The family of this 169-nucleotide sequence from Crystallibacter crystallopoietes is "c-di-AMP riboswitch aptamer (ydaO/yuaA leader)". This family represents a conserved RNA structure found upstream of the ydaO and yuaA genes in Bacillus subtilis and related genes in other bacteria.
RNA sequence: CCGUUCGCAACGAUUUCGCAUGGCAGGGGCGGGGGAACCAACUUCCGGGCUUCUUAGGAGGCCCUUGGGGUUAAGUGGUGGGUGUUCUUGGCUGAGGCCGGGGCUCCCAUGGCCGGAUGACUCCCAUCCGAACCCGACAGCUCACCUCGCAGGCAUUGGGAGAGGUAAU
Numbered sequence: 001c002c003g004u005u006c007g008c009a010a011c012g013a014u015u016u017c018g019c020a021u022g023g024c025a026g027g028g029g030c031g032g033g034g035g036a037a038c039c040a041a042c043u044u045c046c047g048g049g050c051u052u053c054u055u056a057g058g059a060g061g062c063c064c065u066u067g068g069g070g071u072u073a074a075g076u077g078g079u080g081g082g083u084g085u086u087c088u089u090g091g092c093u094g095a096g097g098c099c100g101g102g103g104c105u106c107c108c109a110u111g112g113c114c115g116g117a118u119g120a121c122u123c124c125c126a127u128c129c130g131a132a133c134c135c136g137a138c139a140g141c142u143c144a145c146c147u148c149g150c151a152g153g154c155a156u157u158g159g160g161a162g163a164g165g166u167a168a169u
Base pairs, nucleotide, nucleotide: 001153002152006028008026029150030149031148032147033146034145039067040066068135069134070133076112115129116128117127118126